This 100-nucleotide RNA sequence from Pseudomonas sp. C27(2019) belongs to the Rfam family "SAH (S-adenosyl-L-homocysteine) riboswitch aptamer".
For this family Rfam cites "Riboswitches that sense S-adenosylhomocysteine and activate genes involved in coenzyme recycling" (Wang et al., Mol Cell, 2008).
A search with the family's covariance model found it, with a score of 56 bits.
RNA sequence: AGAUUCGAGGGGCGCUGCAGCAGGAUUCUCCUGUCAGGCUCGAAACAGUUGCCUUCCAGUUGUUCUACAACUGCAUAUUUGCAAACGGCGCCCAUUCGCU
Numbered sequence: 001a002g003a004u005u006c007g008a009g010g011g012g013c014g015c016u017g018c019a020g021c022a023g024g025a026u027u028c029u030c031c032u033g034u035c036a037g038g039c040u041c042g043a044a045a046c047a048g049u050u051g052c053c054u055u056c057c058a059g060u061u062g063u064u065c066u067a068c069a070a071c072u073g074c075a076u077a078u079u080u081g082c083a084a085a086c087g088g089c090g091c092c093c094a095u096u097c098g099c100u
Base pairs, nucleotide, nucleotide: 002046004044005043006042007041008040021033022032023031024030025029